Shown here is a 316-nucleotide RNA sequence from Pampusana beccarii, a member of the family "7SK RNA". 7SK was discovered as an abundant small nuclear RNA in the mid-70s but a possible function has only recently been suggested. Two independent studies have found that 7SK RNA binds the CDK9/cyclin T complex (known as elongation factor P-TEFb). P-TEFb activates transcription by phosphorylating the C-terminal domain of RNA polymerase II. This process is negatively regulated by the 7SK RNP. The secondary structure of 7SK RNA shown here was proposed by Wasserman and Steitz on the basis of chemical modification and enzymatic cleavage experiments. This family contains a number of annotated pseudogenes and 7SK derived repeats. The source organism's lineage runs through Eukaryota, Metazoa, Craniata, Sauropsida and Pampusana.
[Rfam]
RNA sequence: GGAUGUGAGGGCAAUCUGGCUGCAACCUCUGUCACCCCACUGAUUGCCAGGGUUGACUGGGCUGAUCUGGCUGGCUGGGCGGGUGUCCCCUUCCUCCCUUCUCGUUCCCCGUGUGUCCCUGCUGCUCAAAAAGGAUGAACGUUACCUGACAGAGCCAUACCAGCCAUGGGCCAAAGGGUAUAUGGUAGCUGUGCUUGCCCGCUCGAACCUGCAAAGAAGCUCAAAGUCCAUUUGUAGAAGAAGGUAGGACAGUGAAGCUUCCAAGAUUGCAGACACAUCCAAGUGAGGCGGUACAUGGGGUAGGAUGUUUGUUGGU
Numbered sequence: 001g002g003a004u005g006u007g008a009g010g011g012c013a014a015u016c017u018g019g020c021u022g023c024a025a026c027c028u029c030u031g032u033c034a035c036c037c038c039a040c041u042g043a044u045u046g047c048c049a050g051g052g053u054u055g056a057c058u059g060g061g062c063u064g065a066u067c068u069g070g071c072u073g074g075c076u077g078g079g080c081g082g083g084u085g086u087c088c089c090c091u092u093c094c095u096c097c098c099u100u101c102u103c104g105u106u107c108c109c110c111g112u113g114u115g116u117c118c119c120u121g122c123u124g125c126u127c128a129a130a131a132a133g134g135a136u137g138a139a140c141g142u143u144a145c146c147u148g149a150c151a152g153a154g155c156c157a158u159a160c161c162a163g164c165c166a167u168g169g170g171c172c173a174a175a176g177g178g179u180a181u182a183u184g185g186u187a188g189c190u191g192u193g194c195u196u197g198c199c200c201g202c203u204c205g206a207a208c209c210u211g212c213a214a215a216g217a218a219g220c221u222c223a224a225a226g227u228c229c230a231u232u233u234g235u236a237g238a239a240g241a242a243g244g245u246a247g248g249a250c251a252g253u254g255a256a257g258c259u260u261c262c263a264a265g266a267u268u269g270c271a272g273a274c275a276c277a278u279c280c281a282a283g284u285g286a287g288g289c290g291g292u293a294c295a296u297g298g299g300g301u302a303g304g305a306u307g308u309u310u311g312u313u314g315g316u
Stems, first nucleotide, its partner, number of pairs: 001108003005102001007100005014092001018090002025086002028083006035074002037070003042067004046062003119154002126149003133145001135143001188258003194252002198248002201245002209240002212237001215235001217233003281316001286310004292302003
The family is grouped with related families in Rfam's "7SK clan".